Iron response element I: a 35-nucleotide RNA from Carlito syrichta.
It is annotated as a cis-regulatory element.

[Rfam]
RNA sequence: CGGCCUCUUGCUUCAACCGUGUUUGGACGGAGCCG
Numbered sequence: 001c002g003g004c005c006u007c008u009u010g011c012u013u014c015a016a017c018c019g020u021g022u023u024u025g026g027a028c029g030g031a032g033c034c035g
Stems, first nucleotide, its partner, number of pairs: 001035004006031003010028001012027005017021001
Dot-bracket structure: ((((.(((.(.((((((...).)))))))))))))
Notes:
A reference for the family is Walden et al. (2006), "Structure of dual function iron regulatory protein 1 complexed with ferritin IRE-RNA", Science. Lineage of the source: Eukaryota > Deuterostomia > Vertebrata > Haplorrhini > Carlito. Gene Ontology term of the family: response to iron ion. The match comes from Rfam's covariance-model search (48 bits).